[Rfam]
RNA sequence: UCACCAUCCCGAGCGGCCGAGAGACCUGGAUCGACGACGCCGCAGCAACCCGCAGCGAUCGGCCUACUGCACGGUGCUACCGCCAGGACCGAUGGAGU
Numbered sequence: 001u002c003a004c005c006a007u008c009c010c011g012a013g014c015g016g017c018c019g020a021g022a023g024a025c026c027u028g029g030a031u032c033g034a035c036g037a038c039g040c041c042g043c044a045g046c047a048a049c050c051c052g053c054a055g056c057g058a059u060c061g062g063c064c065u066a067c068u069g070c071a072c073g074g075u076g077c078u079a080c081c082g083c084c085a086g087g088a089c090c091g092a093u094g095g096a097g098u
Stems, first nucleotide, its partner, number of pairs: 002097001004095005013043005021032002026086004044078004049074002052070004082090001
RNA: SAM riboswitch aptamer (S box leader)
Organism: Kocuria sp. WRN011